Rfam assigns this 272-nucleotide RNA sequence from Xylaria multiplex to the family "A. fumigatus sRNA Afu_309".
[Rfam]
Nucleotides: 272
Base pairs, nucleotide, nucleotide: 018134019133020132021131022130023129024128025127026075027074028073029071030070031069033067034066035065036064037061038060039059040058041057043054044052045051046050085124087122090117091116092115094113095112096111145194146193147192148191149190150189151188155184156183157182159181160180161179162178163177164176165174166173199265200264201263202260203259204258205257206256216248217247219245221244222243223242226236227235228234229233
Number, partner (000 for none) and nucleotide at each position: 001000u002000c003000u004000u005000c006000u007000u008000c009000u010000a011000c012000a013000a014000c015000c016000a017000c018134c019133g020132a021131c022130c023129u024128g025127u026075g027074c028073c029071c030070g031069a032000c033067c034066g035065u036064c037061c038060u039059c040058u041057g042000u043054u044052c045051g046050c047000a048000c049000u050046g051045c052044g053000a054043a055000u056000u057041c058040a059039g060038a061037g062000u063000c064036g065035a066034u067033g068000g069031u070030c071029g072000a073028g074027g075026c076000a077000g078000c079000u080000c081000g082000a083000u084000u085124u086000c087122u088000u089000a090117u091116g092115g093000g094113a095112u096111c097000a098000u099000c100000c101000u102000a103000u104000u105000c106000u107000u108000c109000a110000u111096g112095a113094u114000g115092u116091c117090a118000g119000u120000c121000c122087a123000a124085a125000u126000c127025a128024c129023a130022g131021g132020u133019c134018g135000c136000a137000g138000a139000a140000g141000a142000a143000c144000c145194a146193a147192u148191u149190c150189a151188g152000a153000g154000a155184a156183c157182c158000u159181g160180a161179g162178c163177u164176c165174g166173c167000u168000g169000u170000a171000a172000g173166g174165c175000u176164g177163a178162g179161c180160u181159c182157g183156g184155u185000g186000c187000u188151c189150u190149g191148g192147a193146u194145u195000c196000g197000a198000a199265g200264a201263c202260c203259g204258u205257a206256u207000a208000u209000u210000c211000c212000a213000a214000a215000a216248c217247c218000a219245c220000a221244g222243c223242c224000g225000a226236g227235a228234u229233c230000u231000u232000u233229g234228a235227u236226u237000c238000a239000u240000g241000a242223g243222g244221u245219g246000g247217g248216g249000g250000a251000a252000a253000a254000c255000c256206a257205u258204a259203c260202g261000a262000u263201g264200u265199c266000u267000a268000c269000a270000u271000a272000u
Record summary:
The base pairs follow the family's consensus structure, which was predicted with WAR. NCBI's taxonomy places the organism under Eukaryota, leotiomyceta, sordariomyceta, Xylariales, Xylaria. A search with the family's covariance model found it, with a score of 131 bits.